A member of the RNA family "Chlorobi-RRM RNA" from Chlorobium limicola, 72 nucleotides long.

RNA sequence: AAUUAGCCAAUGGUUGGCUGAUCGCGUUCAAAUAAUUUGUGCCUUGGUUGUUUGCAUGCGUUUCUUUUCUAU
Numbered sequence: 001a002a003u004u005a006g007c008c009a010a011u012g013g014u015u016g017g018c019u020g021a022u023c024g025c026g027u028u029c030a031a032a033u034a035a036u037u038u039g040u041g042c043c044u045u046g047g048u049u050g051u052u053u054g055c056a057u058g059c060g061u062u063u064c065u066u067u068u069c070u071a072u
Base pairs, nucleotide, nucleotide: 003021004020005019006018007017008016009015010014023060024059025058026057029054030053031052032051033050034049035048036047037046

It is annotated as a cis-regulatory element. Rfam's curators put it in the seed alignment. The family's consensus secondary structure is taken from published work.